[Rfam]
RNA sequence: AAUUAUUUGCUCUUUAGAUAUUUCUCUAGAAGGUUUCCUGUAAAGGGAAGCCCGC
Numbered sequence: 001a002a003u004u005a006u007u008u009g010c011u012c013u014u015u016a017g018a019u020a021u022u023u024c025u026c027u028a029g030a031a032g033g034u035u036u037c038c039u040g041u042a043a044a045g046g047g048a049a050g051c052c053c054g055c
Base pairs, nucleotide, nucleotide: 032052033051034050035049036048037047038046039045
This 55-nucleotide RNA sequence from Anabas testudineus belongs to the Rfam family "U7 small nuclear RNA". About the family: Animal histone pre-mRNAs are spliced by a different mechanism than nuclear pre-mRNAs and self-splicing introns. The match comes from Rfam's covariance-model search (45 bits).